[Rfam]
RNA sequence: UCCUCGCCCAAAGAAUCGCAGUCGAAGCUCACUCACAGAGACGCCCUCUGGGUGCUCUCAUCCAACACAAUGCUUUGGGAGAAAGUCCCCGGACAGCCCCGAACAGGGGAUUUCGCGUCAACGCGUCGCCAUAGAAGCAGCGCGGUCUCGUCGCUGCUCCCGGUCCUUCUGCGCGCCUCGCACCGUUUGCACCCGGUCACUCCCCUCUUUGCUCACUCGGACCCCAAGCUGUUCACUACGGAUGAAGAUAUGAGUCCGAGCGGUGCAAGGUUCGGGAUGUUGCGGGAACGGCUUUGUGCCUGGGGAGAUGCUUGGAUACCGCGUGGGACCCCGUGGCCGCUGGCUUGCCAGUAGCAGUGUCAAGGUAUUUUCGUCGAGAAGAUAGUUAUGCGAUUGCUUUCGUGUCCUUCAUGGGCCGGAGGUAACUCGAUGGGGCUUAUUCUUGGUGCGAGG
Number, nucleotide and partner (000 for none) at each position: 001u000002c453003c452004u451005c450006g449007c448008c446009c445010a444011a443012a000013g000014a395015a394016u393017c392018g391019c390020a000021g000022u079023c077024g076025a075026a074027g073028c072029u000030c000031a000032c000033u000034c000035a000036c000037a000038g059039a058040g057041a056042c000043g000044c000045c000046c000047u000048c000049u000050g000051g000052g000053u000054g000055c000056u041057c040058u039059c038060a000061u000062c000063c000064a000065a000066c000067a000068c000069a000070a000071u000072g028073c027074u026075u025076u024077g023078g000079g022080a000081g000082a000083a438084a437085g436086u000087c435088c434089c433090c432091g000092g000093a000094c000095a000096g000097c109098c108099c107100c106101g000102a000103a000104c000105a000106g100107g099108g098109g097110a000111u000112u000113u000114c000115g000116c000117g000118u000119c000120a000121a000122c000123g000124c000125g000126u000127c000128g000129c000130c000131a000132u000133a000134g000135a000136a000137g000138c000139a000140g000141c000142g000143c000144g000145g000146u000147c000148u000149c000150g000151u000152c000153g000154c000155u000156g000157c000158u000159c000160c000161c000162g000163g000164u000165c000166c000167u000168u000169c000170u000171g000172c000173g000174c000175g000176c000177c000178u000179c000180g000181c000182a000183c000184c000185g000186u000187u000188u000189g000190c000191a000192c000193c000194c000195g000196g000197u000198c000199a000200c000201u000202c000203c000204c000205c000206u000207c000208u000209u000210u000211g000212c000213u000214c000215a000216c000217u000218c000219g000220g000221a000222c000223c000224c000225c000226a000227a000228g000229c000230u000231g000232u000233u000234c000235a000236c000237u000238a000239c000240g000241g000242a000243u000244g000245a000246a000247g000248a000249u000250a000251u000252g000253a000254g000255u000256c275257c274258g273259a272260g271261c270262g000263g000264u000265g000266c000267a000268a000269g000270g261271u260272u259273c258274g257275g256276g000277a368278u367279g366280u000281u000282g000283c364284g000285g000286g361287a360288a000289c357290g000291g355292c354293u000294u000295u000296g000297u000298g000299c000300c351301u350302g349303g348304g000305g000306a000307g000308a000309u000310g000311c000312u000313u000314g000315g000316a000317u000318a000319c000320c000321g000322c000323g000324u000325g000326g000327g000328a000329c000330c000331c000332c000333g000334u000335g000336g344337c343338c342339g000340c000341u000342g338343g337344c336345u000346u000347g000348c303349c302350a301351g300352u000353a000354g292355c291356a000357g289358u000359g000360u287361c286362a000363a000364g283365g000366u279367a278368u277369u000370u000371u000372c000373g000374u000375c000376g000377a000378g000379a000380a000381g000382a000383u000384a000385g000386u000387u000388a000389u000390g019391c018392g017393a016394u015395u014396g000397c422398u421399u420400u419401c418402g417403u000404g000405u000406c000407c000408u000409u000410c000411a000412u000413g000414g000415g000416c000417c402418g401419g400420a399421g398422g397423u000424a000425a000426c000427u000428c000429g000430a000431u000432g090433g089434g088435g087436c085437u084438u083439a000440u000441u000442c000443u011444u010445g009446g008447u000448g007449c006450g005451a004452g003453g002